[Rfam]
Background: This 119-nucleotide RNA from Carnegiea gigantea belongs to the Rfam family "Plastid-psbA-1 3UTR RNA". The base pairs follow the family's consensus structure, which was predicted with LocARNA. Taxonomically the source falls in Carnegiea (Eukaryota, Streptophyta, Magnoliopsida, Caryophyllales). The family's RNA type in Rfam is cis-regulatory element.
RNA sequence: UUGAAGCUUCGUCUACAAAUAGAUAAAUUUUCAUUCAUAGUUUAGUGUAUACGAGUUAUUGAAAAUAAGGAGGCAAUACCUGUUUCUUGACAGACAAAGAAACUGGUUAUUGUUUCUGU
Numbered sequence: 001u002u003g004a005a006g007c008u009u010c011g012u013c014u015a016c017a018a019a020u021a022g023a024u025a026a027a028u029u030u031u032c033a034u035u036c037a038u039a040g041u042u043u044a045g046u047g048u049a050u051a052c053g054a055g056u057u058a059u060u061g062a063a064a065a066u067a068a069g070g071a072g073g074c075a076a077u078a079c080c081u082g083u084u085u086c087u088u089g090a091c092a093g094a095c096a097a098a099g100a101a102a103c104u105g106g107u108u109a110u111u112g113u114u115u116c117u118g119u
Base pairs, nucleotide, nucleotide: 008023009022011020012019067119069117070116071115072114073113074112075111076110077109078108080105082103084101085100086099087098088097

From the family's description: Plastid psbA-1 is a non-coding RNA (ncRNA) present in plastids.